[Rfam]
RNA sequence: CUGAUAAAUAUGCAUGGGUCGAUAUCGGAAUAGAUAGCCCGGUUCCUCUUAAAGUACUUCAGCAGGAAGUAUCAAUAGGAGAGCGCGUUAAUGUCAG
Numbered sequence: 001c002u003g004a005u006a007a008a009u010a011u012g013c014a015u016g017g018g019u020c021g022a023u024a025u026c027g028g029a030a031u032a033g034a035u036a037g038c039c040c041g042g043u044u045c046c047u048c049u050u051a052a053a054g055u056a057c058u059u060c061a062g063c064a065g066g067a068a069g070u071a072u073c074a075a076u077a078g079g080a081g082a083g084c085g086c087g088u089u090a091a092u093g094u095c096a097g
Stems, first nucleotide, its partner, number of pairs: 001097005008088002011085003015041004023036004043081005054072006